RNA sequence: AACGCAAGCCGACCUGUCGCACUGACAUUUGCUGUUAGUGAGGAAAGUCCGGGCAGCAUAGAGCAGCGUACUUCCGAAAUGGAAGCGUGCUGACGGUUUUCGUCAGUAUAGAGAUAGUGCCACAGAAAACAAACUACCUGCCAUUGGUGGGAAAAGGUGAAAAGGUGAGGUAAGAGCUCACCGGUCUCGAUGUGAAUCGGAACGCAUGGUAAACCUUACGCGCUGAAAGACCAAAUAGGUUCUGCAAUUGAGGGUCGCUCGCCCGAGCAGAAUUGGGUAGGUCGUUUGAUCUUGCUGGUGACAGCAAGGCUAGAUAAAUGACGGGAUAGAACAGAACCCGGCUUACUGGCUUGCUUUUUGU
Numbered sequence: 001a002a003c004g005c006a007a008g009c010c011g012a013c014c015u016g017u018c019g020c021a022c023u024g025a026c027a028u029u030u031g032c033u034g035u036u037a038g039u040g041a042g043g044a045a046a047g048u049c050c051g052g053g054c055a056g057c058a059u060a061g062a063g064c065a066g067c068g069u070a071c072u073u074c075c076g077a078a079a080u081g082g083a084a085g086c087g088u089g090c091u092g093a094c095g096g097u098u099u100u101c102g103u104c105a106g107u108a109u110a111g112a113g114a115u116a117g118u119g120c121c122a123c124a125g126a127a128a129a130c131a132a133a134c135u136a137c138c139u140g141c142c143a144u145u146g147g148u149g150g151g152a153a154a155a156g157g158u159g160a161a162a163a164g165g166u167g168a169g170g171u172a173a174g175a176g177c178u179c180a181c182c183g184g185u186c187u188c189g190a191u192g193u194g195a196a197u198c199g200g201a202a203c204g205c206a207u208g209g210u211a212a213a214c215c216u217u218a219c220g221c222g223c224u225g226a227a228a229g230a231c232c233a234a235a236u237a238g239g240u241u242c243u244g245c246a247a248u249u250g251a252g253g254g255u256c257g258c259u260c261g262c263c264c265g266a267g268c269a270g271a272a273u274u275g276g277g278u279a280g281g282u283c284g285u286u287u288g289a290u291c292u293u294g295c296u297g298g299u300g301a302c303a304g305c306a307a308g309g310c311u312a313g314a315u316a317a318a319u320g321a322c323g324g325g326a327u328a329g330a331a332c333a334g335a336a337c338c339c340g341g342c343u344u345a346c347u348g349g350c351u352u353g354c355u356u357u358u359u360g361u
Base pairs, nucleotide, nucleotide: 001357002356004354005353006352007351008350009349010348011346013325014324015323016322017321018320020040021039022038023037024036025035026034027033045344046343047342049341050340051339052338053337054225055224056223057222061260062259063258064257066221067220068219069218070217071085072084073083074082075081086111087109088108089107090106091105092104093103094102095101112216113215117214118213119210120209121208134156135155137151138150139149140148141147142146164182165181166180167179168178169177183205184203185202187200188199189198190197191196229283230282231281232280239273241271242270243269244268245267252264253263254262255261290309291308292307293306294305295304296303297302
Bacterial RNase P class A: a 361-nucleotide RNA sequence from Ekhidna lutea. The source organism's lineage runs through Bacteria, Pseudomonadati, Cytophagia, Cytophagales and Ekhidna.